The record is a 195-nucleotide RNA sequence from Anopheles gambiae, which matches "drz-agam-2-2 ribozyme" in Rfam. A reference for the family is Webb et al. (2009), "Widespread occurrence of self-cleaving ribozymes", Science.

Nucleotides: 195
Stems, first nucleotide, its partner, number of pairs: 011104001013102005022069008031058002073195004078191002081189001085097001087095001090105001109181001111179005117173004125169004134154005157164002
Number, partner (000 for none) and nucleotide at each position: 001000a002000g003000u004000a005000u006000u007000c008000a009000u010000u011104a012000a013102u014101c015100u016099g017098c018000a019000a020000u021000c022069g023068g024067a025066u026065g027064g028063g029062a030000u031058c032057c033000g034000a035000a036000g037000c038000c039000c040000c041000c042000u043000c044000g045000a046000g047000g048000g049000u050000u051000a052000a053000u054000a055000c056000a057032g058031g059000c060000u061000c062029u063028c064027c065026c066025a067024u068023c069022c070000a071000a072000c073195u074194c075193c076192u077000a078191u079190u080000c081189c082000g083000a084000c085097a086000c087095g088000u089000a090105c091000u092000c093000g094000c095087c096000a097085u098017g099016c100015a101014g102013a103000g104011u105090g106000c107000u108000a109181a110000a111179g112178u113177g114176u115175g116000u117173c118172a119171c120170c121000a122000c123000a124000u125169a126168u127167c128166c129000a130000a131000g132000c133000a134154u135153g136152g137151g138150u139000a140000c141000a142000c143000g144000g145000g146000c147000u148000u149000g150138a151137u152136c153135c154134a155000a156000c157164c158163c159000c160000u161000u162000g163158g164157g165000c166128g167127g168126a169125u170120g171119g172118u173117g174000g175115c176114a177113u178112a179111u180000g181109u182000c183000a184000a185000a186000c187000c188000a189081g190079g191078a192076g193075g194074g195073g